[Rfam]
RNA sequence: CUGUGGUGCAUUGUAGUUGCAUUGCAUGUGUCCUUGAUGUGCAAUGCACCUGCAAUGUAAUACAG
Dot-bracket structure: ((((.(((((((((((..(.(((((((...........))))))).)..)))))))))).)))))
RNA: mir-33 microRNA precursor family
Organism: Scyliorhinus torazame